Shown here is a 308-nucleotide RNA from Oryza brachyantha, a member of the family "Plant signal recognition particle RNA". NCBI's taxonomy places the organism under Eukaryota, Viridiplantae, Poales, Poaceae, Oryza. Pairs were carried over by alignment from the consensus structure, which is taken from published work.
[Rfam]
RNA sequence: GCCGAGCUCAGUAGCGAGGGCUUGUAACCCAUGUGGGGGCAUUAAGGUGGCGUGAAUGUUUGGUGCGGAAUCGGGGCCUGGGUUCAUUGGUGUAACUAUGCCGGCCUGCCCGUUCCAAGUUGAGUAGUGGUCGGAUGGGCUUUGGCGAAAGCCAUGGGCCUAUCCGGCUCUAAAGUGGCAGGCAAAGCGUGAGGCUGGUUUCACAGAGCAGCGAUCACUGCCCGCUUCCAACGGUGGAAGGAUAACAGGCUGCUGCGCCAUGAGCCCGCUUCUGGCCCAGAUUCCCACUAAAACAGACCACCAUCUUU
Numbered sequence: 001g002c003c004g005a006g007c008u009c010a011g012u013a014g015c016g017a018g019g020g021c022u023u024g025u026a027a028c029c030c031a032u033g034u035g036g037g038g039g040c041a042u043u044a045a046g047g048u049g050g051c052g053u054g055a056a057u058g059u060u061u062g063g064u065g066c067g068g069a070a071u072c073g074g075g076g077c078c079u080g081g082g083u084u085c086a087u088u089g090g091u092g093u094a095a096c097u098a099u100g101c102c103g104g105c106c107u108g109c110c111c112g113u114u115c116c117a118a119g120u121u122g123a124g125u126a127g128u129g130g131u132c133g134g135a136u137g138g139g140c141u142u143u144g145g146c147g148a149a150a151g152c153c154a155u156g157g158g159c160c161u162a163u164c165c166g167g168c169u170c171u172a173a174a175g176u177g178g179c180a181g182g183c184a185a186a187g188c189g190u191g192a193g194g195c196u197g198g199u200u201u202c203a204c205a206g207a208g209c210a211g212c213g214a215u216c217a218c219u220g221c222c223c224g225c226u227u228c229c230a231a232c233g234g235u236g237g238a239a240g241g242a243u244a245a246c247a248g249g250c251u252g253c254u255g256c257g258c259c260a261u262g263a264g265c266c267c268g269c270u271u272c273u274g275g276c277c278c279a280g281a282u283u284c285c286c287a288c289u290a291a292a293a294c295a296g297a298c299c300a301c302c303a304u305c306u307u308u
Base pairs, nucleotide, nucleotide: 001040002039003038004023005022006021007020008019009018028037029036030035044307045306046305047304048303049302050301052299054298057295058294059292060291061290063288064287065286067284068283070282071281072280074278075277076276077275078274080267081266082265083264084263085262086261087260089259090258091257092256095254102252103251104250105249106248107247108246110241111240113239114238115237116236117235119232120231121230122229124228126226127225128224129169130168131167132166133165134164135163136162137161138160139159140158141157142156143154144153145152146151170175177222178221179220180219181218186215188213189212190211195206196205197204
Overview:
The family's RNA type in Rfam is non-coding RNA gene.